A member of the RNA family "TUC338" from Ornithorhynchus anatinus, 180 nucleotides long.
By type it is a cis-regulatory element.
Lineage of the source: Eukaryota > Dipnotetrapodomorpha > Amniota > Monotremata > Ornithorhynchus.
[Rfam]
RNA sequence: UUGACAGCCCUGGAGACUGAAGUCCUCUAUUUAUCCACAGAACAGGUGCAGCACGGGCAGCAGCAGUGCAAGCUUUCCCCUACCGCCCCACCAAUGUGCCUCAGUUCUGUUCUGGAGGGUCCACCUCUAAAGGUGAGAGGGUAGCUCAGUCUCUUCACGUCCAGUAAAUCCUUGGUUUCU
Dot-bracket structure: .(.(..((..((((((((((...((.((.((((((..(((.(.....(..(((((.......((.(................).))........))))).)...).)))...((((((.....))))))..))))))))))....))))))))..)).))....).).............